[Rfam]
RNA sequence: CAGUUGUCGUGCCGUGAGGUCUCCAGCCGCUCCGUCGUACCUGGCGCUACUUCCCCGGUGCCAGGUGCAUCGAGCGGAUGGGGACCUGAGGGCACGGGCAGUGGAGU
Numbered sequence: 001c002a003g004u005u006g007u008c009g010u011g012c013c014g015u016g017a018g019g020u021c022u023c024c025a026g027c028c029g030c031u032c033c034g035u036c037g038u039a040c041c042u043g044g045c046g047c048u049a050c051u052u053c054c055c056c057g058g059u060g061c062c063a064g065g066u067g068c069a070u071c072g073a074g075c076g077g078a079u080g081g082g083g084a085c086c087u088g089a090g091g092g093c094a095c096g097g098g099c100a101g102u103g104g105a106g107u
Stems, first nucleotide, its partner, number of pairs: 010094004015089001018086002021083005027077006034071001037068011
The record is a 107-nucleotide RNA from Actinocatenispora sera, which matches "mraW RNA" in Rfam. The family's RNA type in Rfam is cis-regulatory element. A search with the family's covariance model found it, with a score of 68 bits.